Overview: The family of this 139-nucleotide RNA from Rossellomorea marisflavi is "c-di-AMP riboswitch aptamer (ydaO/yuaA leader)". The organism belongs to Rossellomorea, within Bacteria. The base pairs follow the family's consensus structure.
RNA sequence: UAAAUAGUAUGGCUUAAUCGAUCGAGCGGAGGAAUCAUUCAAGUGGUAUUCCGAUACCUUGGGGUGCAUCCUUUUACUAGGUAGGGAACUCUCAAUCCCGAAUCCGACAGUUAACUCCGUAUGCCAGUUGAGAGAAAGA
Numbered sequence: 001u002a003a004a005u006a007g008u009a010u011g012g013c014u015u016a017a018u019c020g021a022u023c024g025a026g027c028g029g030a031g032g033a034a035u036c037a038u039u040c041a042a043g044u045g046g047u048a049u050u051c052c053g054a055u056a057c058c059u060u061g062g063g064g065u066g067c068a069u070c071c072u073u074u075u076a077c078u079a080g081g082u083a084g085g086g087a088a089c090u091c092u093c094a095a096u097c098c099c100g101a102a103u104c105c106g107a108c109a110g111u112u113a114a115c116u117c118c119g120u121a122u123g124c125c126a127g128u129u130g131a132g133a134g135a136a137a138g139a
Stems, first nucleotide, its partner, number of pairs: 011125003018025002026120006036061002062105003070081003084099004